[Rfam]
This 107-nucleotide RNA sequence from Populus tomentosa belongs to the Rfam family "Small nucleolar RNA Z279/snoR105/snoR108". Lineage of the source: Eukaryota > Embryophyta > rosids > Saliceae > Populus. Rfam 15.1 lists 906 matches to the family in 223 species. The family's consensus secondary structure was predicted with PFOLD. The family is grouped with related families in Rfam's "snoU13 clan". Rfam's curators write: This family includes the plant snoRNAs known as Z279, snoR105 and snoR108. Rfam classes the family as a C/D-box small nucleolar RNA. Gene Ontology terms of the family: RNA processing and nucleolus.
RNA sequence: GGGAUAUGAUGAGUGGUCAGUCCUCGCAACUAAACAUGCGAGAUGGGUGUUCAACCCCCUCCCUGGUUACGACAACAGGGCACUCCAAUCUUCACCAAUCUGAUCCC
Numbered sequence: 001g002g003g004a005u006a007u008g009a010u011g012a013g014u015g016g017u018c019a020g021u022c023c024u025c026g027c028a029a030c031u032a033a034a035c036a037u038g039c040g041a042g043a044u045g046g047g048u049g050u051u052c053a054a055c056c057c058c059c060u061c062c063c064u065g066g067u068u069a070c071g072a073c074a075a076c077a078g079g080g081c082a083c084u085c086c087a088a089u090c091u092u093c094a095c096c097a098a099u100c101u102g103a104u105c106c107c
Base pairs, nucleotide, nucleotide: 001107002106003105004104014097015096016095017094023042024041025040026039027038045085046084047083048082049081050080051079063078064077066076067075